RNA sequence: AGAGGGGGUAGAGGCGCGGCAGUUAUGAGAAGUACAUCUGAGGCGAAGGGACGUCGGACGGUGUGCGUAAGGAACUGUUGCCGAAGCGGGUUCGGAUCCCUUGCCGAAUCGGUUGGGUUCGUUUCCGAAAGGAGCGAAACUGUCACAUGCGAGCAGUUUGCGUGUGGUGUGCUAUCGGGGAA
Dot-bracket structure: ......(((((....(((((((((.......(((((((.....................)))))))......)))))))))...(((.(((((((........))))))).)))((.((((((((.....)))))))).)).(((((((...........)))))))....)))))......